[Rfam]
RNA sequence: CAAACCCGUCAGUGAUGGCGGGUUGAACUGUAAGAAGUCAGCAGAGGCCAUAGUAGUCCGACAGGACGAAGGGC
Dot-bracket structure: ((.((((((((....))))))))))............((....)).(((......((((....))))....)))
A member of the RNA family "Group II catalytic intron D1-D4-1" from Bhargavaea cecembensis, 74 nucleotides long. On this family, see Bonen and Vogel, Trends Genet 2001: "The ins and outs of group II introns". It scores 73 bits against the family's covariance model. The family has 237 seed sequences and 2,508 matches in Rfam 15.1. Pairs were carried over by alignment from the consensus structure.